This 217-nucleotide sequence from Clostridium carboxidivorans belongs to the Rfam family "T-box leader". The literature on the family includes a 1994 paper in J Bacteriol by Grundy et al., "Interaction between the acceptor end of tRNA and the T box stimulates antitermination in the Bacillus subtilis tyrS gene: a new role for the discriminator base". Uncharged tRNA acts as the effector for transcription antitermination of genes in the T-box leader family. By type it is a cis-regulatory leader. The source organism's lineage runs through Bacteria, Clostridia, Eubacteriales, Clostridium and Clostridium carboxidivorans. Pairs were carried over by alignment from the consensus structure, which is taken from published work.
RNA sequence: AUUAAUUCAUUGAAAAGAAGAGUACUUUUAGAGUUCCUUUAAAGAGAGCAGGGACGGUGAAAGCCUGUAUUGAUAUCUAAAAUGGAAGAGAGUCUUUGAGAAGCUUGUUUUGAAAUCACAAUGAAAAAACAAGACGUUAACUGCGUUAAAGUAUGAGUGGAUAAGGUAGUGAUACCUAUCAAUUAGAGUGGUACCGCGGAUAUAACCCGUCUCUUUU
Numbered sequence: 001a002u003u004a005a006u007u008c009a010u011u012g013a014a015a016a017g018a019a020g021a022g023u024a025c026u027u028u029u030a031g032a033g034u035u036c037c038u039u040u041a042a043a044g045a046g047a048g049c050a051g052g053g054a055c056g057g058u059g060a061a062a063g064c065c066u067g068u069a070u071u072g073a074u075a076u077c078u079a080a081a082a083u084g085g086a087a088g089a090g091a092g093u094c095u096u097u098g099a100g101a102a103g104c105u106u107g108u109u110u111u112g113a114a115a116u117c118a119c120a121a122u123g124a125a126a127a128a129a130c131a132a133g134a135c136g137u138u139a140a141c142u143g144c145g146u147u148a149a150a151g152u153a154u155g156a157g158u159g160g161a162u163a164a165g166g167u168a169g170u171g172a173u174a175c176c177u178a179u180c181a182a183u184u185a186g187a188g189u190g191g192u193a194c195c196g197c198g199g200a201u202a203u204a205a206c207c208c209g210u211c212u213c214u215u216u217u
Stems, first nucleotide, its partner, number of pairs: 007101002015096004025084001027082003039069001048068005104133007135145003160180004165175001185214004196210004